[Rfam]
Shown here is a 177-nucleotide RNA from Monilinia fructicola, a member of the family "Small nucleolar RNA snR80".
The base pairs follow the family's consensus structure, which was predicted with WAR.
Rfam links the family to the GO terms nucleolus and RNA processing.
On this family, see Schattner et al., Nucleic Acids Res 2004: "Genome-wide searching for pseudouridylation guide snoRNAs: analysis of the Saccharomyces cerevisiae genome".
RNA sequence: UAUACUUCCCAAACACUCUGGCCCUUACCCCCUUUUCCCAUUGAGGAUCGGUUCAACCUGUGGUAUAGGCCUAUUUUUGGAGGGAAGAAGAUUAAUUUUUCGCCCGAUUACUCACCGAGGUAUCUUGAAUCCUUUCGAGGGUUGUGGAUAUUUUGGUCCAUAUCUUUUGGCCGACAA
Numbered sequence: 001u002a003u004a005c006u007u008c009c010c011a012a013a014c015a016c017u018c019u020g021g022c023c024c025u026u027a028c029c030c031c032c033u034u035u036u037c038c039c040a041u042u043g044a045g046g047a048u049c050g051g052u053u054c055a056a057c058c059u060g061u062g063g064u065a066u067a068g069g070c071c072u073a074u075u076u077u078u079g080g081a082g083g084g085a086a087g088a089a090g091a092u093u094a095a096u097u098u099u100u101c102g103c104c105c106g107a108u109u110a111c112u113c114a115c116c117g118a119g120g121u122a123u124c125u126u127g128a129a130u131c132c133u134u135u136c137g138a139g140g141g142u143u144g145u146g147g148a149u150a151u152u153u154u155g156g157u158c159c160a161u162a163u164c165u166u167u168u169g170g171c172c173g174a175c176a177a
Base pairs, nucleotide, nucleotide: 007085008084009083020071021070022069023068026065027064028063029062031051032050102172104170105169115156116155117154118153120151121150122149123148124147125146